[Rfam]
A member of the RNA family "Archaeal large subunit ribosomal RNA" from Methanobrevibacter smithii, 357 nucleotides of a longer RNA. NCBI's taxonomy places the organism under Archaea, Methanobacteriota, Methanobacteriales, Methanobrevibacter, Methanobrevibacter smithii. Rfam's curators put it in the seed alignment.

RNA sequence: UAAGGUAAACUAGCUAAGGGAAAUCGGCAAAAUGGCCCCGUAACUUUGGAAGAAGGGGUGCCAGCUAUGUGAAUAGCUGGUCUCAGUGACUAGGGGGGCCCGACUGUUUAAUAAAAACAUAGCUCUCUGCUAGCCCGUAAGGGUGUGUACAGAGGGCGACACCUGCCCAGUGCUGGCACGUGAAGCUGGAGUUCAGUUCAGUGAAGCGCCAGUAAACGGCGGGGGUAACUAUAACCCUCUUAAGGUAGCGAAAUGCCUUGUCGGACAAGUACCGACCUGCAUGAAUGGUAGAACGAGGUCCCCACUGUCCCUAGCUAGAACUUAGUGAACCUGCUAUUCUGGUGCACAAGCCAGAGU
Dot-bracket structure: ((((.....(((((((.(((..............(((((....(....).....)))))(((((((((....)))))))))(...).......(((((((((..(((.........)))..(((((((((..((((....))))..)..))))))))...(((.(((..(((((((..(((....(((((......)))))....))))))))..)))))((((((.......))))))(...)...............(((((.......)))))..........)))....)).)))))))....))).)))))))..)))).............(((((........)))))..